[Rfam]
Rfam assigns this 73-nucleotide RNA from Chelydra serpentina to the family "mir-208 microRNA precursor family".
RNA sequence: UCUAACAGGGAAGCUUUUGGCUCGGGUUAUAUUUUCACUCACAGCGUAUAAGACGAGCAAAAAGCUUGUUGGU
Numbered sequence: 001u002c003u004a005a006c007a008g009g010g011a012a013g014c015u016u017u018u019g020g021c022u023c024g025g026g027u028u029a030u031a032u033u034u035u036c037a038c039u040c041a042c043a044g045c046g047u048a049u050a051a052g053a054c055g056a057g058c059a060a061a062a063a064g065c066u067u068g069u070u071g072g073u
Base pairs, nucleotide, nucleotide: 005073006072008070009069011067012066013065014064015063016062017061018060020058023055024054027051028050029049030048031047032046
Its family is annotated with RISC complex and miRNA-mediated post-transcriptional gene silencing in the Gene Ontology. The source organism's lineage runs through Eukaryota, Teleostomi, Amniota, Durocryptodira and Chelydra. The family has 29 seed sequences and 563 matches in Rfam 15.1.